[Rfam]
This 87-nucleotide RNA from Ipomoea nil belongs to the Rfam family "Small nucleolar RNA SNORD25". It is annotated as a C/D-box small nucleolar RNA. It scores 50 bits against the family's covariance model. Pairs were carried over by alignment from the consensus structure, which was predicted with PFOLD.
RNA sequence: AACAACGGUGAUGAGCUCUACAGACCUGUAAUGAGCUGCGAAAAUGAUCGCAAAGUUGUAUUUUAACAUCUAAGGGACUGAGUUGCU
Dot-bracket structure: ..((((...........................................................................))))..